This 87-nucleotide sequence from Hespellia stercorisuis belongs to the Rfam family "GA-cis RNA". The match comes from Rfam's covariance-model search (42 bits).
RNA sequence: AUCCGGGAGAGAGUAUAUGCAGCAUUGCUUCAUAGCAAUCUCUCUGCCGGACUGCCGCUGAACCUAGGUGAGGGGGCGCCACAUAUA
Numbered sequence: 001a002u003c004c005g006g007g008a009g010a011g012a013g014u015a016u017a018u019g020c021a022g023c024a025u026u027g028c029u030u031c032a033u034a035g036c037a038a039u040c041u042c043u044c045u046g047c048c049g050g051a052c053u054g055c056c057g058c059u060g061a062a063c064c065u066a067g068g069u070g071a072g073g074g075g076g077c078g079c080c081a082c083a084u085a086u087a
Base pairs, nucleotide, nucleotide: 008045009044010043011042012041013040018032019031021029022028054077055076056075058073059072062069063068